A member of the RNA family "Nitrogen stress-induced RNA 4" from Pleurocapsa sp. PCC 7327, 83 nucleotides long.
Former name SyR12, is a cyanobacterial non-coding RNA which plays role in the regulation of Glutamine synthetase (GS), a key enzyme in biological nitrogen assimilation.
On this family, see Klahn et al., Proc Natl Acad Sci U S A 2015: "The sRNA NsiR4 is involved in nitrogen assimilation control in cyanobacteria by targeting glutamine synthetase inactivating factor IF7".
The match comes from Rfam's covariance-model search (49 bits).
RNA sequence: AAGAUAUAGAGUCAAUAUCACCCUCCGAUUGCUGGAAAUUGACCUCCUUAAUCUGUCGCAAUGUAAAGAUUAGAGGUCAAUUU
Numbered sequence: 001a002a003g004a005u006a007u008a009g010a011g012u013c014a015a016u017a018u019c020a021c022c023c024u025c026c027g028a029u030u031g032c033u034g035g036a037a038a039u040u041g042a043c044c045u046c047c048u049u050a051a052u053c054u055g056u057c058g059c060a061a062u063g064u065a066a067a068g069a070u071u072a073g074a075g076g077u078c079a080a081u082u083u
Stems, first nucleotide, its partner, number of pairs: 003013003036083011